[Rfam]
RNA sequence: UUCUUCUUCCCACACAAAGAUCUGUGGGCUUGAAGUCCCGCGUGCUGCGAAAGCGGCACUGUUGGUUGAUUUCUACCCAGUUCGACGACAAUGGGAACUUCUUAUUCUUUGAUGAAGCACGUCCGGUCGACAGAUCUGAGAGCAACGGGGGUGGUAGCGGAGGCUUGUUGAAUUGCUCGUCAGUUCCGAGUCGACCUACUGCCCGGGCGCUAUAUUCCAAAACGUUCUCGAGCCCGUCGGGCCAUGGGAGCUGGGUAAAACCAUAGCUUGCCUACAUUC
Numbered sequence: 001u002u003c004u005u006c007u008u009c010c011c012a013c014a015c016a017a018a019g020a021u022c023u024g025u026g027g028g029c030u031u032g033a034a035g036u037c038c039c040g041c042g043u044g045c046u047g048c049g050a051a052a053g054c055g056g057c058a059c060u061g062u063u064g065g066u067u068g069a070u071u072u073c074u075a076c077c078c079a080g081u082u083c084g085a086c087g088a089c090a091a092u093g094g095g096a097a098c099u100u101c102u103u104a105u106u107c108u109u110u111g112a113u114g115a116a117g118c119a120c121g122u123c124c125g126g127u128c129g130a131c132a133g134a135u136c137u138g139a140g141a142g143c144a145a146c147g148g149g150g151g152u153g154g155u156a157g158c159g160g161a162g163g164c165u166u167g168u169u170g171a172a173u174u175g176c177u178c179g180u181c182a183g184u185u186c187c188g189a190g191u192c193g194a195c196c197u198a199c200u201g202c203c204c205g206g207g208c209g210c211u212a213u214a215u216u217c218c219a220a221a222a223c224g225u226u227c228u229c230g231a232g233c234c235c236g237u238c239g240g241g242c243c244a245u246g247g248g249a250g251c252u253g254g255g256u257a258a259a260a261c262c263a264u265a266g267c268u269u270g271c272c273u274a275c276a277u278u279c
Base pairs, nucleotide, nucleotide: 018137019136020135021134022133023132024131025130026078027077028076030075032073034071035070036069037068038065039064040063041061042060043058044057045056046055047054048053086129087128088127089126093118098114148204149203150202154199155198156197157196164190165189166188167187170186171185172184173183174182175181206272207271208270209267210266211265212264213263222256223255224252227250228249229248232242233241234240235239
RNA: A. fumigatus sRNA Afu_309
Organism: Pseudocercospora fijiensis